[Rfam]
RNA sequence: GUCCGUGCCCUGCCUAAUCCACGCGGCGGUUCGCGUGGAGCCGGGGACCCACUCUCCCCCUGGGGCGAAUCGGCAUGCGCCGUAGGGCUGCUUCCAAGCCCGAGCCCGUCAGCUAACCCGGUCGGCCGUAUGGAAGGACAGU
Numbered sequence: 001g002u003c004c005g006u007g008c009c010c011u012g013c014c015u016a017a018u019c020c021a022c023g024c025g026g027c028g029g030u031u032c033g034c035g036u037g038g039a040g041c042c043g044g045g046g047a048c049c050c051a052c053u054c055u056c057c058c059c060c061u062g063g064g065g066c067g068a069a070u071c072g073g074c075a076u077g078c079g080c081c082g083u084a085g086g087g088c089u090g091c092u093u094c095c096a097a098g099c100c101c102g103a104g105c106c107c108g109u110c111a112g113c114u115a116a117c118c119c120g121g122u123c124g125g126c127c128g129u130a131u132g133g134a135a136g137g138a139c140a141g142u
Stems, first nucleotide, its partner, number of pairs: 012126003018039009040122006050062002063107003071082004085101004
Annotation:
The family of this 142-nucleotide RNA from Nonomuraea wenchangensis is "c-di-AMP riboswitch aptamer (ydaO/yuaA leader)". It scores 78 bits against the family's covariance model. The literature on the family includes a 2004 paper in Proc Natl Acad Sci U S A by Barrick et al., "New RNA motifs suggest an expanded scope for riboswitches in bacterial genetic control".